This 130-nucleotide RNA from Chloropsis hardwickii belongs to the Rfam family "Small Cajal body specific RNA 23".
The family's consensus secondary structure was predicted with RNAfold.
The family's RNA type in Rfam is small Cajal body RNA.
For this family Rfam cites "Cajal body-specific small nuclear RNAs: a novel class of 2'-O-methylation and pseudouridylation guide RNAs" (Darzacq et al., EMBO J, 2002).
Lineage of the source: Eukaryota > Tetrapoda > Archelosauria > Dinosauria > Chloropsis.
Nucleotides: 130
Base pairs, nucleotide, nucleotide: 003059004058005057006056007055012046013045014044017040019039020038021037025032026031070126072124073123074122075121078116079115080114083112084111085110086109087108088107090105091102092101
Number, partner (000 for none) and nucleotide at each position: 001000a002000u003059g004058c005057u006056c007055a008000g009000c010000a011000g012046a013045g014044c015000a016000c017040u018000u019039a020038u021037c022000c023000u024000g025032c026031c027000a028000u029000g030000u031026g032025g033000c034000u035000g036000u037021g038020a039019u040017g041000g042000g043000u044014g045013c046012u047000g048000g049000g050000a051000a052000a053000u054000g055007u056006g057005a058004g059003c060000u061000a062000g063000a064000g065000c066000a067000u068000g069000a070126g071000u072124a073123u074122u075121g076000c077000u078116u079115u080114g081000g082000g083112a084111g085110u086109g087108u088107c089000a090105c091102a092101u093000u094000c095000c096000a097000g098000g099000c100000c101092a102091u103000g104000u105090g106000g107088g108087a109086c110085a111084c112083u113000a114080c115079a116078g117000u118000u119000u120000c121075c122074a123073a124072u125000a126070c127000a128000a129000c130000a